[Rfam]
This 85-nucleotide RNA sequence from Bacillus sp. HNG belongs to the Rfam family "c-di-GMP-I riboswitch aptamer". Its family is annotated with cyclic-di-GMP binding in the Gene Ontology. The source organism's lineage runs through Bacteria, Bacillota, Caryophanales, Bacillaceae and Bacillus.
RNA sequence: AUAAAGGAAAGGCAAAUUCAUUGAAAGAUGAAGACGCAAAACUAUAGGGGCUAAGUCCAGUUGGACAUGCCAGCCAGUUGCCGAG
Numbered sequence: 001a002u003a004a005a006g007g008a009a010a011g012g013c014a015a016a017u018u019c020a021u022u023g024a025a026a027g028a029u030g031a032a033g034a035c036g037c038a039a040a041a042c043u044a045u046a047g048g049g050g051c052u053a054a055g056u057c058c059a060g061u062u063g064g065a066c067a068u069g070c071c072a073g074c075c076a077g078u079u080g081c082c083g084a085g
Base pairs, nucleotide, nucleotide: 012037013036017032018031019030020029021028022027040079041078042077043076047075048074049071050070051069056065057064058063